[Rfam]
RNA: let-7 microRNA precursor family
Organism: Scyliorhinus torazame
RNA sequence: UCGGGGUGAGGUAGUAGGUUGUAUAGUUCAGAGUAACAUCACAGGAGAUAGCUGUACAAUCUUCUAGCUUUCCCUGA
Numbered sequence: 001u002c003g004g005g006g007u008g009a010g011g012u013a014g015u016a017g018g019u020u021g022u023a024u025a026g027u028u029c030a031g032a033g034u035a036a037c038a039u040c041a042c043a044g045g046a047g048a049u050a051g052c053u054g055u056a057c058a059a060u061c062u063u064c065u066a067g068c069u070u071u072c073c074c075u076g077a
Base pairs, nucleotide, nucleotide: 001077002076003075004074005073006072008070009069010068012066013065014064016062017061018060019059020058021057022056023055024054025053026052027051040047